[Rfam]
RNA sequence: GGAAGUUUGAGAGGAGCUGUCCUUAGUACGAGAGGACCGGGAUGGACAUACCGCUGGUGUAUCAGUUGUCGUGCCAACGGCAUAGCUGAGUAGCUACGUAUGGAAGGGAUAAACGCUGAAAGCAUCUAAGCGUGAAGCCCCCCUCAAGAUGAGACUUCCCAUCCGUAAGGAGUAAGAACCCUUGAAGACGACAAGGUAGAUAGGUCAGAGGUGGAAGUGUGGUGACACAUGAAGCUGACUGAUACUAAUCGUUCGAGG
Numbered sequence: 001g002g003a004a005g006u007u008u009g010a011g012a013g014g015a016g017c018u019g020u021c022c023u024u025a026g027u028a029c030g031a032g033a034g035g036a037c038c039g040g041g042a043u044g045g046a047c048a049u050a051c052c053g054c055u056g057g058u059g060u061a062u063c064a065g066u067u068g069u070c071g072u073g074c075c076a077a078c079g080g081c082a083u084a085g086c087u088g089a090g091u092a093g094c095u096a097c098g099u100a101u102g103g104a105a106g107g108g109a110u111a112a113a114c115g116c117u118g119a120a121a122g123c124a125u126c127u128a129a130g131c132g133u134g135a136a137g138c139c140c141c142c143c144u145c146a147a148g149a150u151g152a153g154a155c156u157u158c159c160c161a162u163c164c165g166u167a168a169g170g171a172g173u174a175a176g177a178a179c180c181c182u183u184g185a186a187g188a189c190g191a192c193a194a195g196g197u198a199g200a201u202a203g204g205u206c207a208g209a210g211g212u213g214g215a216a217g218u219g220u221g222g223u224g225a226c227a228c229a230u231g232a233a234g235c236u237g238a239c240u241g242a243u244a245c246u247a248a249u250c251g252u253u254c255g256a257g258g
Stems, first nucleotide, its partner, number of pairs: 001159008011145004017045007047102005055096003062089005067082006106140003113133005162171003173256001176254004180196005201247003204243005210236002217230005
The record is a 258-nucleotide part of an RNA from Haloplasma contractile, which matches "Bacterial large subunit ribosomal RNA" in Rfam.
Rfam links the family to the GO terms ribosome and structural constituent of ribosome.
The source organism's lineage runs through Bacteria, Mollicutes, Haloplasmataceae, Haloplasma and Haloplasma contractile.
The family is grouped with related families in Rfam's "LSU clan".